[Rfam]
RNA sequence: UGCACUCAUUGUAAGUCUCUUUGGAUAAAAGCGUCUGCUAAAUGACAUGUA
Number, nucleotide and partner (000 for none) at each position: 001u000002g000003c000004a000005c000006u000007c000008a000009u000010u040011g038012u037013a036014a000015g000016u000017c033018u000019c031020u030021u029022u028023g000024g000025a000026u000027a000028a022029a021030a020031g019032c000033g017034u000035c000036u013037g012038c011039u000040a010041a000042a000043u000044g000045a000046c000047a000048u000049g000050u000051a000
RNA: UnaL2 LINE 3' element
Organism: Liparis tanakae